Shown here is a 313-nucleotide RNA from Chaetothyriales sp. CBS 135597, a member of the family "Group I catalytic intron". Its family is annotated with Group I intron splicing in the Gene Ontology.

RNA sequence: AUUAUAUAAUCAAUUACUAGGUAGUUAAGUGUAGCCUAAAAGUGGCUAUAAGUACCUAAUUCUAGCAUGAUACUACUAAAUUAUAGGGAUAUCCUAAAGCUAUUGUUACCAAGCUGACCUCUGAAAGGGGGUGGUGGCUGAGAUAAUGACCUAGGGUAUGGUAAAAACACAAUAGAUAUGAUAAUGGACAAUCUGCAGCCAAGUCCUAAGGGCCAAGUGCCUAUGGAUAUAGUUCACAGAUUAAAUGGUAGUAGGCUUCAAGGCAUUGAGCUUAGGGCUUAAGAUAUAGUUGGACCCUGGGGAAAGCCCAGGU
Dot-bracket structure: (((((.((.........)).))))).....((............))........................(((((.((...(.((((....(((...........................................................................................)))...)))).)((...((((....(((.....)))...))))...))...[.[[[[[..)).))))).((((.((..........)).))))........]]]]]]....(((((.....)))))..
Lineage of the source: Eukaryota > Dikarya > leotiomyceta > Eurotiomycetes > Chaetothyriales.